The family of this 86-nucleotide sequence is "BsrC". The family has 29 seed sequences and 572 matches in Rfam 15.1.
RNA sequence: CCUACUCAGAACACUGACAACCCUUUUUCUCUUUGUCCCUUCGGCACCCUUGCCGAGUCGUUCAUAAUCAGGGUAUUCAAAAUUUA
Numbered sequence: 001c002c003u004a005c006u007c008a009g010a011a012c013a014c015u016g017a018c019a020a021c022c023c024u025u026u027u028u029c030u031c032u033u034u035g036u037c038c039c040u041u042c043g044g045c046a047c048c049c050u051u052g053c054c055g056a057g058u059c060g061u062u063c064a065u066a067a068u069c070a071g072g073g074u075a076u077u078c079a080a081a082a083u084u085u086a
Base pairs, nucleotide, nucleotide: 034066035065039060040057041056042055043054044053045052046051
The family's consensus secondary structure was predicted with CMfinder. A reference for the family is Saito et al. (2008), "Novel small RNA-encoding genes in the intergenic regions of Bacillus subtilis", Gene.